[Rfam]
RNA sequence: UUCUUUUACCAAACAACAGAUCUGUGUCCUGCGAUCCCGUUCCAUGAAGCUAUGCGUUCGCGUCUAGUCUGAAUGUGUUUCGGUCGUAUUGCUUGACAGUUCGACGACCCAUGGAGCCAUCCAUCUGGUGUAUAACCGUUUUUCUCAUGAUGUCAAUUUCCGGUCGACAGAUCUCAGAUGAAGAUUCAGCGCUGGGAUUAUAACACUCUGCCUUGAGCUUCCUUCGGGUGAGCUCGGUGAGAUGGCCCGGGCCAGCUGUGGGCGUCAUAUUCCAUCUCUCUUUGCCGAUGGCCGUCGGCUGGUGAGGUUAGGGAAAAACCAUGACAGCCAACAUAC
Numbered sequence: 001u002u003c004u005u006u007u008a009c010c011a012a013a014c015a016a017c018a019g020a021u022c023u024g025u026g027u028c029c030u031g032c033g034a035u036c037c038c039g040u041u042c043c044a045u046g047a048a049g050c051u052a053u054g055c056g057u058u059c060g061c062g063u064c065u066a067g068u069c070u071g072a073a074u075g076u077g078u079u080u081c082g083g084u085c086g087u088a089u090u091g092c093u094u095g096a097c098a099g100u101u102c103g104a105c106g107a108c109c110c111a112u113g114g115a116g117c118c119a120u121c122c123a124u125c126u127g128g129u130g131u132a133u134a135a136c137c138g139u140u141u142u143u144c145u146c147a148u149g150a151u152g153u154c155a156a157u158u159u160c161c162g163g164u165c166g167a168c169a170g171a172u173c174u175c176a177g178a179u180g181a182a183g184a185u186u187c188a189g190c191g192c193u194g195g196g197a198u199u200a201u202a203a204c205a206c207u208c209u210g211c212c213u214u215g216a217g218c219u220u221c222c223u224u225c226g227g228g229u230g231a232g233c234u235c236g237g238u239g240a241g242a243u244g245g246c247c248c249g250g251g252c253c254a255g256c257u258g259u260g261g262g263c264g265u266c267a268u269a270u271u272c273c274a275u276c277u278c279u280c281u282u283u284g285c286c287g288a289u290g291g292c293c294g295u296c297g298g299c300u301g302g303u304g305a306g307g308u309u310a311g312g313g314a315a316a317a318a319c320c321a322u323g324a325c326a327g328c329c330a331a332c333a334u335a336c
Stems, first nucleotide, its partner, number of pairs: 018174008026097003031092001033090003036086001037083003042077001044074002048070002050067003054063003105166005112155003116151001118149003186255001191252001192250005209239004215235006221228002261329003264325005277314005284308003290300004
Notes
Shown here is a 336-nucleotide sequence from Trichophyton interdigitale, a member of the family "A. fumigatus sRNA Afu_309". The family has 10 seed sequences and 663 matches in Rfam 15.1. On this family, see Jochl et al., Nucleic Acids Res 2008: "Small ncRNA transcriptome analysis from Aspergillus fumigatus suggests a novel mechanism for regulation of protein synthesis".